This 73-nucleotide sequence from Ottowia oryzae belongs to the Rfam family "tRNA". Pairs were carried over by alignment from the consensus structure, which is taken from published work.

[Rfam]
RNA sequence: GCCGACAUAGCUCAUCCGGUAGAGCGCCUCGCUGAAGACGAGGGCGUGGGAGGUUCGAGUCCUUCUGUCGGCA
Numbered sequence: 001g002c003c004g005a006c007a008u009a010g011c012u013c014a015u016c017c018g019g020u021a022g023a024g025c026g027c028c029u030c031g032c033u034g035a036a037g038a039c040g041a042g043g044g045c046g047u048g049g050g051a052g053g054u055u056c057g058a059g060u061c062c063u064u065c066u067g068u069c070g071g072c073a
Stems, first nucleotide, its partner, number of pairs: 001072007010025004027043005049065005
It is annotated as a transfer RNA.